[Rfam]
RNA sequence: GAAAGACGCGCAUUUAUUAUCAUCAUCCCUAAUUAUCAUUAUCAGAUAUUUCUUUUGGCCACAUUACUCAUGUGGCCUUUU
Numbered sequence: 001g002a003a004a005g006a007c008g009c010g011c012a013u014u015u016a017u018u019a020u021c022a023u024c025a026u027c028c029c030u031a032a033u034u035a036u037c038a039u040u041a042u043c044a045g046a047u048a049u050u051u052c053u054u055u056u057g058g059c060c061a062c063a064u065u066a067c068u069c070a071u072g073u074g075g076c077c078u079u080u081u
Base pairs, nucleotide, nucleotide: 025047026046027045030041031040057077058076059075060074061073062072063071
RNA: MicA sRNA
Organism: Serratia sp.